[Rfam]
RNA sequence: GAGCUGUGAUGACUUCCGUUACUGAUGGCUGGGGUCCAUCAGACCAAUCUGAACUCAAGGUUGACAAAACAGGCCCUUCUGAGCUC
Numbered sequence: 001g002a003g004c005u006g007u008g009a010u011g012a013c014u015u016c017c018g019u020u021a022c023u024g025a026u027g028g029c030u031g032g033g034g035u036c037c038a039u040c041a042g043a044c045c046a047a048u049c050u051g052a053a054c055u056c057a058a059g060g061u062u063g064a065c066a067a068a069a070c071a072g073g074c075c076c077u078u079c080u081g082a083g084c085u086c
Stems, first nucleotide, its partner, number of pairs: 001086004
The family of this 86-nucleotide RNA sequence from Artemisia annua is "small nucleolar RNA snoR114". A reference for the family is Chen and Wu (2009), "Mining small RNA sequencing data: a new approach to identify small nucleolar RNAs in Arabidopsis", Nucleic Acids Res. Rfam classes the family as a C/D-box small nucleolar RNA. Pairs were carried over by alignment from the consensus structure, which was predicted with RNAalifold. Taxonomically the source falls in Artemisia (Eukaryota, asterids, campanulids, Anthemideae).